[Rfam]
Nucleotides: 059
Stems, first nucleotide, its partner, number of pairs: 028039004042057006
Number, partner (000 for none) and nucleotide at each position: 001000g002000u003000a004000a005000a006000a007000a008000u009000a010000a011000g012000a013000a014000a015000a016000c017000a018000u019000c020000g021000a022000a023000a024000a025000g026000a027000a028039u029038c030037g031036c032000u033000a034000u035000a036031g037030c038029g039028a040000a041000a042057u043056c044055u045054g046053c047052u048000a049000u050000g051000u052047g053046g054045c055044a056043g057042a058000a059000a
The family of this 59-nucleotide sequence is "RAGATH-30 RNA". It is one of the family's seed sequences. Pairs were carried over by alignment from the consensus structure, which is taken from published work.